A member of the RNA family "DUF3800-VII RNA" from Firmicutes bacterium CAG:238, 78 nucleotides long. The family's consensus secondary structure is taken from published work. The family's RNA type in Rfam is small RNA. The source organism's lineage runs through Bacteria, Bacillati and Bacillota. It is one of the family's seed sequences.
[Rfam]
RNA sequence: GAAACGCCGCCAGAGAAUGCGAGGGUGUAUCACCAGCGUGCUAGACACGUGGGAGUCGCACUGGGGGUUUUUUCAUUU
Numbered sequence: 001g002a003a004a005c006g007c008c009g010c011c012a013g014a015g016a017a018u019g020c021g022a023g024g025g026u027g028u029a030u031c032a033c034c035a036g037c038g039u040g041c042u043a044g045a046c047a048c049g050u051g052g053g054a055g056u057c058g059c060a061c062u063g064g065g066g067g068u069u070u071u072u073u074c075a076u077u078u
Base pairs, nucleotide, nucleotide: 001073002072003071004070006068007067008065010064011063012062013061018060019059020058021057022056024034025033026032027031037049038048039047040046